[Rfam]
RNA sequence: UAACCGGAUAGCUUUAGCGGGCAACAAGCGGGUUUCGUCAACCCGUUUCCGGUUAACCCUUCUUGACGA
Numbered sequence: 001u002a003a004c005c006g007g008a009u010a011g012c013u014u015u016a017g018c019g020g021g022c023a024a025c026a027a028g029c030g031g032g033u034u035u036c037g038u039c040a041a042c043c044c045g046u047u048u049c050c051g052g053u054u055a056a057c058c059c060u061u062c063u064u065g066a067c068g069a
Stems, first nucleotide, its partner, number of pairs: 001055008011022004028046005041064001
Dot-bracket structure: ((((((((..((((....)))).....(((((........[))))).))))))))........].....

A member of the RNA family "int-alpA RNA" from Methylomonas lenta, 69 nucleotides long.
The match comes from Rfam's covariance-model search (40 bits).
Pairs were carried over by alignment from the consensus structure, which is taken from published work.
By type it is a small RNA.
NCBI's taxonomy places the organism under Bacteria, Pseudomonadota, Gammaproteobacteria, Methylococcaceae, Methylomonas.